[Rfam]
RNA sequence: UUCGCAGCCGCUGCAUUUUCUAUGUAGCCCUCUGCAAGCCGUCGCCGGCAACUUCUACUCGAUCUAUCGAUAAUAAAGCAGGCGUCCAGCCGUUCUCAGCGGCACGGC
Numbered sequence: 001u002u003c004g005c006a007g008c009c010g011c012u013g014c015a016u017u018u019u020c021u022a023u024g025u026a027g028c029c030c031u032c033u034g035c036a037a038g039c040c041g042u043c044g045c046c047g048g049c050a051a052c053u054u055c056u057a058c059u060c061g062a063u064c065u066a067u068c069g070a071u072a073a074u075a076a077a078g079c080a081g082g083c084g085u086c087c088a089g090c091c092g093u094u095c096u097c098a099g100c101g102g103c104a105c106g107g108c
Base pairs, nucleotide, nucleotide: 010028011027012026013025014024015023038108039107040106041105044103045102046101047100078090079089081087082086